About this RNA:
The family of this 178-nucleotide RNA from Tetzosporium hominis is "Lysine riboswitch aptamer". Taxonomically the source falls in Tetzosporium (Bacteria, Bacillati, Bacillota, Caryophanaceae). A search with the family's covariance model found it, with a score of 118 bits.
RNA sequence: UAUAUAGGUAGAGGCCGCAGAGCUUAAGAGUAUGAUACGGGAGUUUGACAGCUAAGAUCGUGUUAAAAAGGAAGCUUUGCCGAAAUAGGAGUGUGUCGUCACACACCUUCUAUUGGGGUUAUUUUGAAUAAAAAUAACACUGUCAUUUGCAUUCGGCAAAUGGAGAGCUACAGUCAGU
Numbered sequence: 001u002a003u004a005u006a007g008g009u010a011g012a013g014g015c016c017g018c019a020g021a022g023c024u025u026a027a028g029a030g031u032a033u034g035a036u037a038c039g040g041g042a043g044u045u046u047g048a049c050a051g052c053u054a055a056g057a058u059c060g061u062g063u064u065a066a067a068a069a070g071g072a073a074g075c076u077u078u079g080c081c082g083a084a085a086u087a088g089g090a091g092u093g094u095g096u097c098g099u100c101a102c103a104c105a106c107c108u109u110c111u112a113u114u115g116g117g118g119u120u121a122u123u124u125u126g127a128a129u130a131a132a133a134a135u136a137a138c139a140c141u142g143u144c145a146u147u148u149g150c151a152u153u154c155g156g157c158a159a160a161u162g163g164a165g166a167g168c169u170a171c172a173g174u175c176a177g178u
Stems, first nucleotide, its partner, number of pairs: 008171004017080009033065008084114007091106005115141002118138008143163007